The family of this 78-nucleotide RNA from Crypturellus undulatus is "mir-27 microRNA precursor family". It scores 66 bits against the family's covariance model. For this family Rfam cites "The developmental miRNA profiles of zebrafish as determined by small RNA cloning" (Chen et al., Genes Dev, 2005). The organism belongs to Crypturellus, within Eukaryota.
[Rfam]
Nucleotides: 078
Base pairs, nucleotide, nucleotide: 011068012067013066014065015064016063017062018061019060020059027054028053029052030051031050032049
Number, partner (000 for none) and nucleotide at each position: 001000c002000c003000g004000c005000g006000g007000c008000g009000c010000a011068g012067a013066g014065c015064u016063u017062a018061g019060c020059u021000g022000g023000c024000u025000g026000c027054u028053g029052a030051a031050c032049a033000g034000u035000g036000g037000u038000u039000c040000u041000c042000u043000g044000u045000u046000c047000u048000g049032u050031g051030u052029u053028c054027a055000c056000a057000g058000u059020g060019g061018c062017u063016a064015a065014g066013u067012u068011c069000u070000g071000c072000g073000c074000c075000c076000g077000g078000c